[Rfam]
RNA sequence: UCAUCCUCAGAUUCUACAAUGAUUUUUAGCCCCGUCACGGUCGCCUAAAGGCGAGGGAUUCAUGACAGAGCAUGUUUAUCAUGCACGUGGUAAAGCCGUACCUGAGCACGUUUGAUGUUAUGU
Numbered sequence: 001u002c003a004u005c006c007u008c009a010g011a012u013u014c015u016a017c018a019a020u021g022a023u024u025u026u027u028a029g030c031c032c033c034g035u036c037a038c039g040g041u042c043g044c045c046u047a048a049a050g051g052c053g054a055g056g057g058a059u060u061c062a063u064g065a066c067a068g069a070g071c072a073u074g075u076u077u078a079u080c081a082u083g084c085a086c087g088u089g090g091u092a093a094a095g096c097c098g099u100a101c102c103u104g105a106g107c108a109c110g111u112u113u114g115a116u117g118u119u120a121u122g123u
Base pairs, nucleotide, nucleotide: 006106007105008104009103010102034101035100037099038098039097040096041054042053043052044051045050061122062121063120064119065118066117067116070084071083072082073081085111086110087109088108089107
RNA: EGFOA RNA